Bacillaceae-1 RNA: a 67-nucleotide RNA sequence from Metabacillus lacus. By type it is a small RNA.
RNA sequence: AACCAAGGAUGUCUUGCUAAAAGCGCCACGUCCUGUGGCAACGCAUGACUGUCCGACAUCCUGUCGG
Numbered sequence: 001a002a003c004c005a006a007g008g009a010u011g012u013c014u015u016g017c018u019a020a021a022a023g024c025g026c027c028a029c030g031u032c033c034u035g036u037g038g039c040a041a042c043g044c045a046u047g048a049c050u051g052u053c054c055g056a057c058a059u060c061c062u063g064u065c066g067g
Base pairs, nucleotide, nucleotide: 011049012048013047015045016044017043025039026038027037028036029035053067054066055065056064057063